[Rfam]
RNA sequence: CAAGCAGAAAUGGUGUUAAAAUAUUAUCUAGCAGGAUAAGGGAAAGUUACCCUUAAAGAAUAUGAAAUUUAUCUUCAUCAGAUUCAUAUUCUUACCGAAGUU
Number, nucleotide and partner (000 for none) at each position: 001c000002a000003a000004g032005c031006a029007g028008a027009a025010a024011u023012g000013g000014u000015g000016u000017u000018a000019a000020a000021a000022u000023a011024u010025u009026a000027u008028c007029u006030a000031g005032c004033a000034g000035g000036a000037u000038a054039a053040g052041g051042g050043a000044a000045a000046g000047u000048u000049a000050c042051c041052c040053u039054u038055a000056a093057a092058g091059a090060a089061u088062a087063u086064g085065a084066a000067a083068u082069u081070u080071a000072u000073c000074u000075u000076c000077a000078u000079c000080a070081g069082a068083u067084u065085c064086a063087u062088a061089u060090u059091c058092u057093u056094a000095c000096c000097g000098a000099a000100g000101u000102u000
RNA: Methylobacterium-1 RNA